[Rfam]
RNA sequence: AAGUAAGUUAUGGUCGAGGGUCUGGAAAACUCGGAAGAUUGAUGUGUUGUCUAUGAGCUUCUUAUCUUGAUAUUCUGAUGGGUUUGGAGUUAAAUAACAGCACUACAAUU
Numbered sequence: 001a002a003g004u005a006a007g008u009u010a011u012g013g014u015c016g017a018g019g020g021u022c023u024g025g026a027a028a029a030c031u032c033g034g035a036a037g038a039u040u041g042a043u044g045u046g047u048u049g050u051c052u053a054u055g056a057g058c059u060u061c062u063u064a065u066c067u068u069g070a071u072a073u074u075c076u077g078a079u080g081g082g083u084u085u086g087g088a089g090u091u092a093a094a095u096a097a098c099a100g101c102a103c104u105a106c107a108a109u110u
Stems, first nucleotide, its partner, number of pairs: 044103006056091006065081002
This 110-nucleotide RNA from Phtheirospermum japonicum belongs to the Rfam family "Small nucleolar RNA snoR97". Taxonomically the source falls in Phtheirospermum (Eukaryota, Viridiplantae, Magnoliopsida, eudicotyledons). The literature on the family includes a 2002 paper in Curr Biol by Marker et al., "Experimental RNomics: identification of 140 candidates for small non-messenger RNAs in the plant Arabidopsis thaliana". Its family is annotated with RNA processing and nucleolus in the Gene Ontology.